[Rfam]
RNA sequence: UGGGCAGUAUCAUCAGCUGAACUGCACCGAUUUUUUAAAAAGGUGAUUUUUUAUAAUAUUGCUGUGUAAAUAAGAUUUUUUGAUGCAAUAUUCAUGAAGAAAUACGCCAAAAAAAUAAAGAUUUCUGCCUAGAUCCACAAAUGGACCGGGACAGAGGG
Numbered sequence: 001u002g003g004g005c006a007g008u009a010u011c012a013u014c015a016g017c018u019g020a021a022c023u024g025c026a027c028c029g030a031u032u033u034u035u036u037a038a039a040a041a042g043g044u045g046a047u048u049u050u051u052u053a054u055a056a057u058a059u060u061g062c063u064g065u066g067u068a069a070a071u072a073a074g075a076u077u078u079u080u081u082g083a084u085g086c087a088a089u090a091u092u093c094a095u096g097a098a099g100a101a102a103u104a105c106g107c108c109a110a111a112a113a114a115a116u117a118a119a120g121a122u123u124u125c126u127g128c129c130u131a132g133a134u135c136c137a138c139a140a141a142u143g144g145a146c147c148g149g150g151a152c153a154g155a156g157g158g
Stems, first nucleotide, its partner, number of pairs: 001029003004025005010020002125154003128150003132146001134145003
RNA: pan motif